Description:
This 178-nucleotide RNA sequence belongs to the Rfam family "TUC338". By type it is a cis-regulatory element.
RNA sequence: UUGAUAGCACCAGAGACUGAAGUUCUCUAUUUAUCCACAGAACAAGUACAACAUGGACAGUGAUAGUGCAGGCUCCCCCACAUUGUCCUACAAUAUGCCUCAACUUUGCUCUGGAGGGACCAUUUCUAGAAGGUGAAGUAAUGGUUCAGUCUCUAUCCCCACUCCAUCCUUGGUCUAU
Numbered sequence: 001u002u003g004a005u006a007g008c009a010c011c012a013g014a015g016a017c018u019g020a021a022g023u024u025c026u027c028u029a030u031u032u033a034u035c036c037a038c039a040g041a042a043c044a045a046g047u048a049c050a051a052c053a054u055g056g057a058c059a060g061u062g063a064u065a066g067u068g069c070a071g072g073c074u075c076c077c078c079c080a081c082a083u084u085g086u087c088c089u090a091c092a093a094u095a096u097g098c099c100u101c102a103a104c105u106u107u108g109c110u111c112u113g114g115a116g117g118g119a120c121c122a123u124u125u126c127u128a129g130a131a132g133g134u135g136a137a138g139u140a141a142u143g144g145u146u147c148a149g150u151c152u153c154u155a156u157c158c159c160c161a162c163u164c165c166a167u168c169c170u171u172g173g174u175c176u177a178u
Stems, first nucleotide, its partner, number of pairs: 003164002007159001012154010024141001027138002031136005038108003048100001052097004062087005111129007